[Rfam]
RNA: Streptomyces RNA 2736
Organism: Streptomyces sp. SID7982
RNA sequence: CGCCCGGCCGGAUCCCGUGGGGGGAAUCCGCUCGGGACACUGGAAAGCGCCCCGAGCAUCGGC
Numbered sequence: 001c002g003c004c005c006g007g008c009c010g011g012a013u014c015c016c017g018u019g020g021g022g023g024g025a026a027u028c029c030g031c032u033c034g035g036g037a038c039a040c041u042g043g044a045a046a047g048c049g050c051c052c053c054g055a056g057c058a059u060c061g062g063c
Stems, first nucleotide, its partner, number of pairs: 001061002003036005009030005014024003042051002